A member of the RNA family "FMN riboswitch aptamer (RFN element)" from Natranaerobius trueperi, 123 nucleotides long. Lineage of the source: Bacteria > Bacillati > Bacillota > Natranaerobiaceae > Natranaerobius. The RFN element is a highly conserved domain that is found frequently in the 5'-untranslated regions of prokaryotic mRNAs that encode for flavin mononucleotide (FMN) biosynthesis and transport proteins.
RNA sequence: AUGUACCUUCAGGGUAGGGUGAGAUUCCCGACCGGCGGUAGAGCCCGCGAACUCUUCAAAUGAAGGGUUGAUCCGGUGUAAUUCCGGAGCCGACAGUUAAAGUCUGGAUGGGAGAAGGUAAUU
Numbered sequence: 001a002u003g004u005a006c007c008u009u010c011a012g013g014g015u016a017g018g019g020u021g022a023g024a025u026u027c028c029c030g031a032c033c034g035g036c037g038g039u040a041g042a043g044c045c046c047g048c049g050a051a052c053u054c055u056u057c058a059a060a061u062g063a064a065g066g067g068u069u070g071a072u073c074c075g076g077u078g079u080a081a082u083u084c085c086g087g088a089g090c091c092g093a094c095a096g097u098u099a100a101a102g103u104c105u106g107g108a109u110g111g112g113a114g115a116a117g118g119u120a121a122u123u
Base pairs, nucleotide, nucleotide: 004120005119006118007117008116009115010114017029018028019027031103032102033092034091035048036047037046038045043090044089051068052067053066072088073087074086075085076084094106095105096104